[Rfam]
Nucleotides: 078
Stems, first nucleotide, its partner, number of pairs: 002065007011033007039056005046078005
Number, partner (000 for none) and nucleotide at each position: 001000u002065c003064c004063c005062c006061g007060g008059c009000u010000a011033g012032g013031u014030g015029c016028g017027g018000c019000g020000u021000c022000a023000u024000g025000a026000a027017c028016c029015g030014c031013g032012c033011c034000g035000a036000a037000a038000a039056g040055a041054u042053g043052g044000a045000a046078c047077c048076c049075u050074u051000a052043c053042c054041g055040u056039c057000c058000u059008g060007c061006c062005g063004g064003g065002g066000u067000a068000c069000u070000c071000a072000u073000a074050a075049a076048g077047g078046g
Annotation: This 78-nucleotide sequence belongs to the Rfam family "int-alpA RNA". It is annotated as a small RNA. From the family's description: Acidobacteria (1 example), Planctomycetes (1 example), Proteobacteria. It is one of the family's seed sequences.